[Rfam]
The family of this 80-nucleotide sequence from Galemys pyrenaicus is "Small nucleolar RNA SNORD111". Pairs were carried over by alignment from the consensus structure, which was predicted with RNAalifold.

RNA sequence: CGGCCUGAAGUGAUGAUCCACAUUCAUGUCUCUUCUCUGAUGAUUCUAUUGAAGAAACUUACGUGUAUCUGAUCAGGCUU
Numbered sequence: 001c002g003g004c005c006u007g008a009a010g011u012g013a014u015g016a017u018c019c020a021c022a023u024u025c026a027u028g029u030c031u032c033u034u035c036u037c038u039g040a041u042g043a044u045u046c047u048a049u050u051g052a053a054g055a056a057a058c059u060u061a062c063g064u065g066u067a068u069c070u071g072a073u074c075a076g077g078c079u080u
Stems, first nucleotide, its partner, number of pairs: 002079004